Annotation:
Rfam assigns this 74-nucleotide RNA sequence from Roseibium aquae to the family "Makes More Granules Regulator RNA (mmgR)". The base pairs follow the family's consensus structure. A search with the family's covariance model found it, with a score of 69 bits. Its Rfam clan is "suhB sRNA clan". The family's RNA type in Rfam is small RNA. From the family's description: SuhB later renamed mmgR (makes more granules regulator) was a putative non-coding RNA found multiple times in the Agrobacterium tumefaciens genome and related alpha-proteobacteria.

RNA sequence: UACCGCCGCCCUCCUUGGGCGUUUCCUCCCUAGACUCGGGCCGCCUUUCAAAGGCGGCCUCUUUUUUGCCGUGC
Numbered sequence: 001u002a003c004c005g006c007c008g009c010c011c012u013c014c015u016u017g018g019g020c021g022u023u024u025c026c027u028c029c030c031u032a033g034a035c036u037c038g039g040g041c042c043g044c045c046u047u048u049c050a051a052a053g054g055c056g057g058c059c060u061c062u063u064u065u066u067u068g069c070c071g072u073g074c
Stems, first nucleotide, its partner, number of pairs: 008020004039059008